This 73-nucleotide RNA sequence belongs to the Rfam family "Fluoride riboswitch aptamer (crcB RNA motif)". Pairs were carried over by alignment from the consensus structure, which is taken from published work.
[Rfam]
RNA sequence: UAGCUGGCAGGGAAUGAAGUUCUCCCCAGGCAGUGCCUAAACCGCUAUUACAGCUGAUGACUUCUGUUGUUUA
Numbered sequence: 001u002a003g004c005u006g007g008c009a010g011g012g013a014a015u016g017a018a019g020u021u022c023u024c025c026c027c028a029g030g031c032a033g034u035g036c037c038u039a040a041a042c043c044g045c046u047a048u049u050a051c052a053g054c055u056g057a058u059g060a061c062u063u064c065u066g067u068u069g070u071u072u073a
Base pairs, nucleotide, nucleotide: 010026011025012024013023016064017063018062019061020060021059044054045053046052